Rfam assigns this 122-nucleotide RNA sequence to the family "Streptomyces-metH RNA". Rfam classes the family as a small RNA.
[Rfam]
RNA sequence: CCGUCCCGGCAGGUGGAACGGACGUCGGCGUUCGGCGCCCGGCGGCUACCCUGGCCUGGUGCGUCCCCCUCGGCAGGGGGCGCAAAGCCGACAGCCGUCGCACCCCAGGGAGCACAUCCAUG
Numbered sequence: 001c002c003g004u005c006c007c008g009g010c011a012g013g014u015g016g017a018a019c020g021g022a023c024g025u026c027g028g029c030g031u032u033c034g035g036c037g038c039c040c041g042g043c044g045g046c047u048a049c050c051c052u053g054g055c056c057u058g059g060u061g062c063g064u065c066c067c068c069c070u071c072g073g074c075a076g077g078g079g080g081c082g083c084a085a086a087g088c089c090g091a092c093a094g095c096c097g098u099c100g101c102a103c104c105c106c107a108g109g110g111a112g113c114a115c116a117u118c119c120a121u122g
Base pairs, nucleotide, nucleotide: 060084061083062082063081065079066078067077068076087101088100090099091098092097